[Rfam]
RNA sequence: AAAAAAGCAGGGGCAUGUUGCCUCUGUGAUCAUGCCUCUCGUAACCUUCAGGGAUAUAAUAAUCAUUGUUAUUGGGUGAAUCUAUGUUCUCUUUUUUGUGACUGAUGGUUCAGUAAAUGAUGGAACACUU
Number, nucleotide and partner (000 for none) at each position: 001a000002a000003a000004a000005a048006a047007g046008c000009a000010g000011g037012g036013g000014c034015a033016u032017g031018u000019u000020g000021c000022c000023u000024c000025u000026g000027u000028g000029a000030u000031c017032a016033u015034g014035c000036c012037u011038c000039u000040c000041g000042u000043a000044a000045c000046c007047u006048u005049c000050a000051g000052g000053g000054a000055u000056a000057u000058a000059a000060u000061a000062a000063u123064c122065a121066u120067u119068g118069u117070u116071a000072u000073u000074g000075g000076g000077u112078g111079a110080a109081u108082c107083u000084a000085u000086g000087u000088u000089c000090u000091c000092u000093u000094u000095u000096u000097u000098g000099u000100g000101a000102c000103u000104g000105a000106u000107g082108g081109u080110u079111c078112a077113g000114u000115a000116a070117a069118u068119g067120a066121u065122g064123g063124a000125a000126c000127a000128c000129u000130u000
The family of this 130-nucleotide RNA from Phaseolus vulgaris is "Small nucleolar RNA snoR74". The family has 9 seed sequences and 1,404 matches in Rfam 15.1. On this family, see Marker et al., Curr Biol 2002: "Experimental RNomics: identification of 140 candidates for small non-messenger RNAs in the plant Arabidopsis thaliana". Pairs were carried over by alignment from the consensus structure, which was predicted with WAR.